The record is a 410-nucleotide RNA from Paenibacillus albilobatus, which matches "Bacterial RNase P class A" in Rfam. It scores 278 bits against the family's covariance model. The base pairs follow the family's consensus structure, which is taken from published work. NCBI's taxonomy places the organism under Bacteria, Bacillota, Caryophanales, Paenibacillaceae, Paenibacillus.
RNA sequence: AAAGUUUGACAGACAAUCGCUGGCGGCGCGUAAGGCGCCGCGAGAGGAAAGUCCGGGCUCCAUAGGGCAGGGUGCUGGAUAACGUCCAGUCAGCGCGAGUUGAAGGAUAGUGCCACAGAAACGGACCGCCGAUGGCCGCUUUCGAGCGGAUCAGGCAAGGGUGGAACCGAGGUGUAAGAGACCCCGAGGAACGCUGGUGACAUCGUUCCUGGUAAACCCCACCUGGAGCAAGACCUAAUGGAACGCAGCUUCUUGAUUGAAGCAGCCUUUGCCCGAGGCGCGUUCGGGUUGGUCGCUUGAGCCAAUCAGCAAUGAUUGGCCUAGAUAGAUGAUUGUCGCUUAUCUGCGGGAGGGUAGUUCCCGUCUGUACCGCAACGAGCACAGAACCCGGCUUACGUAAAACUUUCCAA
Numbered sequence: 001a002a003a004g005u006u007u008g009a010c011a012g013a014c015a016a017u018c019g020c021u022g023g024c025g026g027c028g029c030g031u032a033a034g035g036c037g038c039c040g041c042g043a044g045a046g047g048a049a050a051g052u053c054c055g056g057g058c059u060c061c062a063u064a065g066g067g068c069a070g071g072g073u074g075c076u077g078g079a080u081a082a083c084g085u086c087c088a089g090u091c092a093g094c095g096c097g098a099g100u101u102g103a104a105g106g107a108u109a110g111u112g113c114c115a116c117a118g119a120a121a122c123g124g125a126c127c128g129c130c131g132a133u134g135g136c137c138g139c140u141u142u143c144g145a146g147c148g149g150a151u152c153a154g155g156c157a158a159g160g161g162u163g164g165a166a167c168c169g170a171g172g173u174g175u176a177a178g179a180g181a182c183c184c185c186g187a188g189g190a191a192c193g194c195u196g197g198u199g200a201c202a203u204c205g206u207u208c209c210u211g212g213u214a215a216a217c218c219c220c221a222c223c224u225g226g227a228g229c230a231a232g233a234c235c236u237a238a239u240g241g242a243a244c245g246c247a248g249c250u251u252c253u254u255g256a257u258u259g260a261a262g263c264a265g266c267c268u269u270u271g272c273c274c275g276a277g278g279c280g281c282g283u284u285c286g287g288g289u290u291g292g293u294c295g296c297u298u299g300a301g302c303c304a305a306u307c308a309g310c311a312a313u314g315a316u317u318g319g320c321c322u323a324g325a326u327a328g329a330u331g332a333u334u335g336u337c338g339c340u341u342a343u344c345u346g347c348g349g350g351a352g353g354g355u356a357g358u359u360c361c362c363g364u365c366u367g368u369a370c371c372g373c374a375a376c377g378a379g380c381a382c383a384g385a386a387c388c389c390g391g392c393u394u395a396c397g398u399a400a401a402a403c404u405u406u407c408c409a410a
Stems, first nucleotide, its partner, number of pairs: 001406007009398002012337007020044002023041006049394003053391005058228004065274004070224005075089005090104001091102004105219002110217002112213003126160002128156003136149005168186002171183003188209006195202002232294004241285006265279005301320008
From the family's description: Ribonuclease P (RNase P) is a ubiquitous endoribonuclease, found in archaea, bacteria and eukarya as well as chloroplasts and mitochondria. Rfam classes the family as a ribozyme.